RNA sequence: GUCCAGAAAACGAUGUGGUAAUUUCCAAGCACAUAUCUGAUGACUCCAUCGUCGAAUUUAACUACUCUGAGUUUUCCUGGAC
Number, nucleotide and partner (000 for none) at each position: 001g082002u081003c080004c079005a078006g077007a000008a075009a074010a073011c071012g000013a000014u000015g000016u000017g000018g000019u000020a000021a000022u000023u000024u000025c000026c000027a000028a000029g000030c000031a000032c000033a000034u000035a000036u000037c000038u000039g000040a000041u000042g000043a000044c000045u000046c000047c000048a000049u000050c000051g000052u000053c000054g000055a000056a000057u000058u000059u000060a000061a000062c000063u000064a000065c000066u000067c000068u000069g000070a000071g011072u000073u010074u009075u008076c000077c006078u005079g004080g003081a002082c001
RNA: Small nucleolar RNA SNORD121A
Organism: Prolemur simus